[Rfam]
RNA: Rhizobiales sRNA Atu_C8
Organism: Fulvimarina manganoxydans
RNA sequence: GACCAACACGACCAUCAUCGUACUUGUAGGGAUGCGCACACGCGAAGCGGUUUGAACCGCUCGGCGAAUGCCACGUGUGCGCGAAUGACCAAGGGCCCGAGUGGCCCUUUUUUCAUGCGCCGAC
Numbered sequence: 001g002a003c004c005a006a007c008a009c010g011a012c013c014a015u016c017a018u019c020g021u022a023c024u025u026g027u028a029g030g031g032a033u034g035c036g037c038a039c040a041c042g043c044g045a046a047g048c049g050g051u052u053u054g055a056a057c058c059g060c061u062c063g064g065c066g067a068a069u070g071c072c073a074c075g076u077g078u079g080c081g082c083g084a085a086u087g088a089c090c091a092a093g094g095g096c097c098c099g100a101g102u103g104g105c106c107c108u109u110u111u112u113u114c115a116u117g118c119g120c121c122g123a124c
Stems, first nucleotide, its partner, number of pairs: 009026001029120001031118001033083010046061005064071002088109001092108006